[Rfam]
This 132-nucleotide sequence from Nothobranchius furzeri belongs to the Rfam family "Small nucleolar RNA SNORA14". About the family: ACA14 is a member of the H/ACA class of snoRNA that guide the sites of modification of uridines to pseudouridines. The base pairs follow the family's consensus structure, which was predicted with RNAfold. Lineage of the source: Eukaryota > Craniata > Euacanthomorphacea > Aplocheiloidei > Nothobranchius.
RNA sequence: GAGCAUUCUUAGUAAACCCCCUAGUUGCUUUCUGUAGCUUCUGGGACAAGAAAGGAUGCGAGAGAAAUCUUAGAAACAUCCAAAGCUGGGAGCUUUGUGGCCGUAGCUCUCGGUUAUUUCACCUCUAAGACA
Number, nucleotide and partner (000 for none) at each position: 001g000002a000003g059004c058005a057006u056007u000008c000009u051010u050011a000012g000013u000014a000015a000016a000017c000018c000019c000020c045021c044022u043023a042024g041025u000026u000027g038028c037029u000030u000031u000032c000033u000034g000035u000036a000037g028038c027039u000040u000041c024042u023043g022044g021045g020046a000047c000048a000049a000050g010051a009052a000053a000054g000055g000056a006057u005058g004059c003060g000061a000062g000063a000064g000065a000066a000067a000068u130069c129070u128071u127072a126073g125074a124075a000076a000077c000078a000079u000080c000081c000082a000083a000084a115085g114086c113087u112088g111089g110090g109091a000092g107093c106094u000095u000096u000097g000098u103099g000100g000101c000102c000103g098104u000105a000106g093107c092108u000109c090110u089111c088112g087113g086114u085115u084116a000117u000118u000119u000120c000121a000122c000123c000124u074125c073126u072127a071128a070129g069130a068131c000132a000